[Rfam]
RNA sequence: GGUUGCAUUACUGGGCAAUUACACCUUGGGCAGUUGGCCACUCACCCUAGCUAGCCUGAUACCCAACGUGAUUAAUUUCACAAGGCGGCCGGAGAUUGAUUAGUUCACUGCCAAAGGUGAUUUGCCCGGCAAUUCUGCU
Dot-bracket structure: ....(.(((.((((((((...((((...((((((.(((................................................................))).))))))...))))..)))))))).))).)....
Rfam assigns this 139-nucleotide RNA from Carya illinoinensis to the family "mir-399 microRNA precursor family".
The family has 13 seed sequences and 2,396 matches in Rfam 15.1.
On this family, see Jones-Rhoades and Bartel, Mol Cell 2004: "Computational Identification of Plant MicroRNAs and Their Targets, Including a Stress-Induced miRNA".
A search with the family's covariance model found it, with a score of 61 bits.
Rfam describes the family as follows. mir-399 was identified in both Arabidopsis thaliana and Oryza sativa computationally and was later experimentally verified. mir-399 is thought to target mRNAs coding for a phosphatase transporter. The mature sequence is excised from the 3' arm of the hairpin.